[Rfam]
RNA sequence: CGAUUAAAAGGUCCGUAGUCGAAUAGGAAGGCCCGUCUGUAAUGUGAAAUAUCAAGUUUGAAUAAGGACGGGAAGAACUAUGAAUAAGGAGCGAUAAGAGGCUAGAUUAUUGUAGAGCGAGGGGUGAAAUCUGAUGACCUCUACAGGAGUAACAGAGGCGAAGGCGCUAGCCGGGAGCGUUUCCGAUGAUCAAGGACGUAGGCCGGGGUAUCGAAAACGAUUAGAUACCGUAGUAGUCCCGGCAGUCAACGAUGCCGACACAGUUGGACAGAGAUGUGUGACUGAAGAGAAAUCGAGUAGGGCUAUGGGGAGAGUACGUGCGCAAGCAUAAAAUUUAAAGGAAAU
Dot-bracket structure: ((........((((...(((...................................................................((((((.(....((((((((..((((((((...(((......)))......))))))))..)).......((....)).))))))...).))).)))...)))...))))....((((((....(....(((.........)))....).))))))..........(((.((.((((((.(((....))).))))))..((....))..))..)))..)).(((......((((....))))....))).........
Overview: The record is a 345-nucleotide part of an RNA from Potaspora morhaphis, which matches "Microsporidia small subunit ribosomal RNA" in Rfam. It is one of the family's seed sequences. The base pairs follow the family's consensus structure, which is taken from published work. Its family is annotated with structural constituent of ribosome and ribosome in the Gene Ontology. For this family Rfam cites "Crystal structure of the ribosome at 5.5 A resolution" (Yusupov et al., Science, 2001).